[Rfam]
RNA sequence: GUCUCUUAUGAUGAUCAAUUGAAAAACUUUCGUUCUUCUGAGAAAAAUUCCAUGCGGAAAUAUUAUGGAGACCUGAACUGAAGAGAC
Numbered sequence: 001g002u003c004u005c006u007u008a009u010g011a012u013g014a015u016c017a018a019u020u021g022a023a024a025a026a027c028u029u030u031c032g033u034u035c036u037u038c039u040g041a042g043a044a045a046a047a048u049u050c051c052a053u054g055c056g057g058a059a060a061u062a063u064u065a066u067g068g069a070g071a072c073c074u075g076a077a078c079u080g081a082a083g084a085g086a087c
Stems, first nucleotide, its partner, number of pairs: 003085004

Small nucleolar RNA Z159/U59: an 87-nucleotide sequence from Camellia sinensis. Pairs were carried over by alignment from the consensus structure, which was predicted with PFOLD. Its family is annotated with nucleolus and RNA processing in the Gene Ontology. A search with the family's covariance model found it, with a score of 67 bits. Its Rfam clan is "SNORD59 clan".